nrdJ RNA: a 93-nucleotide RNA sequence from Streptomyces griseoaurantiacus. Rfam's curators put it in the seed alignment.
RNA sequence: ACCUGUCACGCGCACCCCGGCACCACACGGUGCGCGUGACCAGCAGACACACCACACACAAGUGCCAGGAAGAAACGGGCACUGAUGGGCGUU
Numbered sequence: 001a002c003c004u005g006u007c008a009c010g011c012g013c014a015c016c017c018c019g020g021c022a023c024c025a026c027a028c029g030g031u032g033c034g035c036g037u038g039a040c041c042a043g044c045a046g047a048c049a050c051a052c053c054a055c056a057c058a059c060a061a062g063u064g065c066c067a068g069g070a071a072g073a074a075a076c077g078g079g080c081a082c083u084g085a086u087g088g089g090c091g092u093u
Stems, first nucleotide, its partner, number of pairs: 005040010017030002062082005